[Rfam]
RNA sequence: UAGCGACUCCAUCCACGUCGAUGUUCAGUCCGGACAUGAGAGUACAAUGACUGCAUUGCUCACGGCCCUUUCGGGCUCGAACAACGUGUUCGGGUCCG
Numbered sequence: 001u002a003g004c005g006a007c008u009c010c011a012u013c014c015a016c017g018u019c020g021a022u023g024u025u026c027a028g029u030c031c032g033g034a035c036a037u038g039a040g041a042g043u044a045c046a047a048u049g050a051c052u053g054c055a056u057u058g059c060u061c062a063c064g065g066c067c068c069u070u071u072c073g074g075g076c077u078c079g080a081a082c083a084a085c086g087u088g089u090u091c092g093g094g095u096c097c098g
Stems, first nucleotide, its partner, number of pairs: 003010001023030001032059001075096001077094002
RNA: Pyrrolysine insertion sequence mttB